[Rfam]
RNA: bZIP non canonical Hac1/Xbp1 intron
Organism: Fusarium oxysporum
RNA sequence: GCACCUCUCCCGACCUGACACAACGUCCUGCUGCGAUGUUGUCCGACCUGCAGUGUCACAUGUCGGCGGAGAUGC
Numbered sequence: 001g002c003a004c005c006u007c008u009c010c011c012g013a014c015c016u017g018a019c020a021c022a023a024c025g026u027c028c029u030g031c032u033g034c035g036a037u038g039u040u041g042u043c044c045g046a047c048c049u050g051c052a053g054u055g056u057c058a059c060a061u062g063u064c065g066g067c068g069g070a071g072a073u074g075c
Stems, first nucleotide, its partner, number of pairs: 001075003005071003010066005022040006045057003